[Rfam]
RNA sequence: CCAUGCUAAGCGGGAAAUUAGCGAUGUCCUGUACCUGCGAUUCGCUACAGCAGGGCUGAAUUCCCAAUAGAGGAUUUUAAUUUUGCAGUCUGCCCCUUAUAAGUGGUGUUGACGAUUGGGUCCUGCGCAACAGAAACUUGUGAACCGUGUCAGAUCUUGAUCGAAGCAGCACUAAGCAAGAUCUUUUGUGUGCCGCAAGGGUCGCCUAAUCUGAGCUAACUGUAAGGGUAACGUGUGAGGUUAACUUUCGACUUUGGGUGCAUGG
Numbered sequence: 001c002c003a004u005g006c007u008a009a010g011c012g013g014g015a016a017a018u019u020a021g022c023g024a025u026g027u028c029c030u031g032u033a034c035c036u037g038c039g040a041u042u043c044g045c046u047a048c049a050g051c052a053g054g055g056c057u058g059a060a061u062u063c064c065c066a067a068u069a070g071a072g073g074a075u076u077u078u079a080a081u082u083u084u085g086c087a088g089u090c091u092g093c094c095c096c097u098u099a100u101a102a103g104u105g106g107u108g109u110u111g112a113c114g115a116u117u118g119g120g121u122c123c124u125g126c127g128c129a130a131c132a133g134a135a136a137c138u139u140g141u142g143a144a145c146c147g148u149g150u151c152a153g154a155u156c157u158u159g160a161u162c163g164a165a166g167c168a169g170c171a172c173u174a175a176g177c178a179a180g181a182u183c184u185u186u187u188g189u190g191u192g193c194c195g196c197a198a199g200g201g202u203c204g205c206c207u208a209a210u211c212u213g214a215g216c217u218a219a220c221u222g223u224a225a226g227g228g229u230a231a232c233g234u235g236u237g238a239g240g241u242u243a244a245c246u247u248u249c250g251a252c253u254u255u256g257g258g259u260g261c262a263u264g265g
Base pairs, nucleotide, nucleotide: 001265002264003263004262005261006260009057010056011055012030013029014028015027017025018024019023034054035053036052037051038050063258064257065256066255067254072249073248074247078243079242080241081240082239083238084237085236086235087234091230092229095227096226097225098224099223100222103220104219105217106216107215114211115210116209117208118207119206120205121204122200123199124197125196126195127194128190129189131188132187133186134185135184137180138179139178140177141176147172148171149170150169155164156163